[Rfam]
A member of the RNA family "Xanthine riboswitch aptamer (NMT1 RNA)" from Tritonibacter litoralis, 52 nucleotides long. Lineage of the source: Bacteria > Pseudomonadati > Pseudomonadota > Alphaproteobacteria > Tritonibacter. A search with the family's covariance model found it, with a score of 39 bits. On this family, see Yu and Breaker, RNA 2020: "A bacterial riboswitch class senses xanthine and uric acid to regulate genes associated with purine oxidation". Rfam links the family to the GO term purine nucleobase binding.

Nucleotides: 052
Base pairs, nucleotide, nucleotide: 005048006047007046008045009044010043015037018039019038021035022034023033024032025031
Number, partner (000 for none) and nucleotide at each position: 001000g002000a003000c004000u005048g006047g007046a008045g009044u010043a011000u012000a013000a014000g015037c016000a017000g018039g019038c020000a021035g022034u023033g024032c025031c026000a027000u028000u029000g030000u031025g032024g033023c034022g035021c036000a037015g038019g039018u040000c041000a042000u043010u044009g045008c046007u047006c048005c049000c050000c051000u052000g